[Rfam]
RNA sequence: GAAACGUCAACCGGGCACGGCAGUAGCCGGUCAGACCCGGACUCCCUUGCCAGAAGGUGCA
Numbered sequence: 001g002a003a004a005c006g007u008c009a010a011c012c013g014g015g016c017a018c019g020g021c022a023g024u025a026g027c028c029g030g031u032c033a034g035a036c037c038c039g040g041a042c043u044c045c046c047u048u049g050c051c052a053g054a055a056g057g058u059g060c061a
Stems, first nucleotide, its partner, number of pairs: 011040005018029004044057002047054002
The record is a 61-nucleotide RNA sequence from Actinopolymorpha pittospori, which matches "Transposase-2 RNA" in Rfam. Lineage of the source: Bacteria > Bacillati > Actinomycetota > Actinomycetes > Actinopolymorpha. The family's RNA type in Rfam is small RNA. The family's consensus secondary structure is taken from published work. The family has 151 seed sequences and 214 matches in Rfam 15.1.